[Rfam]
RNA sequence: UAGAAGCGUCACGACUGGCGAAGGUGGAACUAACCACCGGGAAGUGACGCAAAUACUCCGGCCAGCGUCGCCCGCCUGGGCGCUGCGG
Numbered sequence: 001u002a003g004a005a006g007c008g009u010c011a012c013g014a015c016u017g018g019c020g021a022a023g024g025u026g027g028a029a030c031u032a033a034c035c036a037c038c039g040g041g042a043a044g045u046g047a048c049g050c051a052a053a054u055a056c057u058c059c060g061g062c063c064a065g066c067g068u069c070g071c072c073c074g075c076c077u078g079g080g081c082g083c084u085g086c087g088g
Stems, first nucleotide, its partner, number of pairs: 006050007015041002017076004024037004065083005
RNA: ZMP/ZTP riboswitch aptamer (pfl RNA motif)